This 98-nucleotide part of an RNA from Haloquadratum walsbyi belongs to the Rfam family "Archaeal large subunit ribosomal RNA". Its Rfam clan is "LSU clan". The source organism's lineage runs through Archaea, Methanobacteriati, Halobacteria, Halobacteriales and Haloquadratum. Pairs were carried over by alignment from the consensus structure, which is taken from published work.

RNA sequence: GACGAGGCAUACAAGGUCCCACUCACAACGACCUGAGAGCAAUCUCACUGUAGAAUGAGUGGGAAGCCGAUGUCGCGUCGUACGUUUUGAAAAACGAC
Dot-bracket structure: ((((.(((((....((..(((((((...(....(((((....))))).....)..)))))))....)).))))).))))...(((........)))..